[Rfam]
The family of this 123-nucleotide RNA from Gossypium anomalum is "MIR7504 microRNA precursor family". Its family is annotated with miRNA-mediated post-transcriptional gene silencing and RISC complex in the Gene Ontology.
RNA sequence: GAUAGGGGAAUGACAAAUCAAUUUUUUUUCCUCAUUUUCAGCUUUUUUUCUCUUGACAAAAUUCAAAUUCGACUAAAAAUACUAAAAAUCUAGUAGAAAAAUCUGAUUUGUCAUUCUCCUAUU
Number, nucleotide and partner (000 for none) at each position: 001g123002a122003u121004a120005g119006g118007g117008g116009a115010a114011u113012g112013a111014c110015a109016a108017a107018u106019c105020a104021a000022u000023u100024u099025u098026u097027u000028u095029u000030c093031c000032u000033c000034a089035u088036u087037u086038u085039c000040a083041g082042c000043u000044u079045u078046u077047u076048u000049u000050c000051u000052c000053u000054u000055g000056a000057c000058a000059a000060a000061a000062u000063u000064c000065a000066a000067a000068u000069u000070c000071g000072a000073c000074u000075a000076a047077a046078a045079a044080u000081a000082c041083u040084a000085a038086a037087a036088a035089u034090c000091u000092a000093g030094u000095a028096g000097a026098a025099a024100a023101a000102u000103c000104u020105g019106a018107u017108u016109u015110g014111u013112c012113a011114u010115u009116c008117u007118c006119c005120u004121a003122u002123u001